Nucleotides: 164
Base pairs, nucleotide, nucleotide: 012122013121014120015119017047018046019045020044021043023042024041025040026039027038049090050089051088052087056083057082058081060079061078062077063076064075092117093116094115095113096112097111099109100108138163139162140161141160142159143158146155147154148153
Number, partner (000 for none) and nucleotide at each position: 001000a002000u003000a004000c005000u006000u007000a008000c009000c010000u011000g012122g013121c014120a015119u016000a017047g018046g019045a020044g021043a022000a023042a024041c025040g026039g027038u028000g029000a030000u031000c032000a033000c034000u035000g036000c037000g038027g039026c040025c041024g042023u043021u044020c045019u046018c047017c048000c049090a050089g051088g052087u053000c054000g055000a056083g057082g058081c059000u060079c061078a062077c063076u064075c065000a066000u067000u068000g069000c070000a071000c072000u073000u074000c075064g076063g077062g078061u079060g080000a081058g082057c083056u084000g085000a086000a087052g088051c089050c090049u091000g092117c093116g094115a095113u096112c097111a098000c099109c100108c101000c102000a103000a104000a105000u106000g107000u108100g109099g110000g111097u112096g113095a114000c115094u116093c117092g118000g119015g120014u121013g122012c123000g124000u125000a126000a127000u128000u129000u130000u131000u132000g133000c134000g135000u136000a137000u138163g139162g140161g141160g142159a143158u144000c145000u146155g147154c148153g149000u150000u151000c152000g153148c154147g155146c156000u157000a158143a159142u160141c161140c162139c163138u164000g
Shown here is a 164-nucleotide RNA from Biomphalaria glabrata, a member of the family "U1 spliceosomal RNA".
U1 is a small nuclear RNA (snRNA) component of the spliceosome (involved in pre-mRNA splicing). Its 5' end forms complementary base pairs with the 5' splice junction, thus defining the 5' donor site of an intron. There are significant differences in sequence and secondary structure between metazoan and yeast U1 snRNAs, the latter being much longer (568 nucleotides as compared to 164 nucleotides in human). Nevertheless, secondary structure predictions suggest that all U1 snRNAs share a 'common core' consisting of helices I, II, the proximal region of III, and IV. This family does not contain the larger yeast sequences.
Rfam classes the family as a spliceosomal small nuclear RNA.